The record is a 78-nucleotide RNA from Serratia ficaria, which matches "KDPG-aldolase RNA" in Rfam. NCBI's taxonomy places the organism under Bacteria, Pseudomonadati, Pseudomonadota, Enterobacterales, Serratia.
RNA sequence: GGUGCGGCCGGACGCCUGCGCUAACGCGCGGGGCCCUGUGGCAGGGGCGUGCCAGAUUAAAACCGUAAGUAAUGGAGA
Numbered sequence: 001g002g003u004g005c006g007g008c009c010g011g012a013c014g015c016c017u018g019c020g021c022u023a024a025c026g027c028g029c030g031g032g033g034c035c036c037u038g039u040g041g042c043a044g045g046g047g048c049g050u051g052c053c054a055g056a057u058u059a060a061a062a063c064c065g066u067a068a069g070u071a072a073u074g075g076a077g078a
Stems, first nucleotide, its partner, number of pairs: 001053006015032006064069001